[Rfam]
RNA: c-di-GMP-I riboswitch aptamer
RNA sequence: GUACGAGAAUAGCAAAAUCACUGAAAAGUGACUACGCAAAGCUAUAGGGGCUAAAGUUCUAUAACUAGGCCAGCCAGCUACCGAA
Number, nucleotide and partner (000 for none) at each position: 001g000002u000003a000004c000005g000006a000007g000008a000009a000010u000011a000012g037013c036014a000015a000016a000017a000018u031019c030020a029021c028022u027023g000024a000025a000026a000027a022028g021029u020030g019031a018032c000033u000034a000035c000036g013037c012038a000039a000040a079041g078042c077043u076044a000045u000046a000047g075048g074049g071050g070051c069052u000053a000054a000055a000056g065057u064058u063059c000060u000061a000062u000063a058064a057065c056066u000067a000068g000069g051070c050071c049072a000073g000074c048075c047076a043077g042078c041079u040080a000081c000082c000083g000084a000085a000